RNA sequence: AGUCAAUGAUGUUAAAAAUUGUCCGUACCAUCCGAGAUCUCCUCUUUGAAGAGACUUUUUUACCAAUUUCUGAGACUA
Numbered sequence: 001a002g003u004c005a006a007u008g009a010u011g012u013u014a015a016a017a018a019u020u021g022u023c024c025g026u027a028c029c030a031u032c033c034g035a036g037a038u039c040u041c042c043u044c045u046u047u048g049a050a051g052a053g054a055c056u057u058u059u060u061u062a063c064c065a066a067u068u069u070c071u072g073a074g075a076c077u078a
Base pairs, nucleotide, nucleotide: 001077002076003075004074
Rfam assigns this 78-nucleotide sequence from Papaver nudicaule to the family "small nucleolar RNA snoR117". Lineage of the source: Eukaryota > Spermatophyta > Ranunculales > Papaveraceae > Papaver. Its family is annotated with RNA processing and nucleolus in the Gene Ontology. The match comes from Rfam's covariance-model search (64 bits). It is annotated as a C/D-box small nucleolar RNA.